[Rfam]
RNA sequence: UCAGGCUGUGAUUGUCCAAACGCAAUUCUUGUUAAACGUAUAUAUGCAAUCAAGGAUUGAGUAGGGACGUCAACGCUUGA
Numbered sequence: 001u002c003a004g005g006c007u008g009u010g011a012u013u014g015u016c017c018a019a020a021c022g023c024a025a026u027u028c029u030u031g032u033u034a035a036a037c038g039u040a041u042a043u044a045u046g047c048a049a050u051c052a053a054g055g056a057u058u059g060a061g062u063a064g065g066g067a068c069g070u071c072a073a074c075g076c077u078u079g080a
Stems, first nucleotide, its partner, number of pairs: 002079005009072004014068004021061001023059009
RNA: mir-219 microRNA precursor family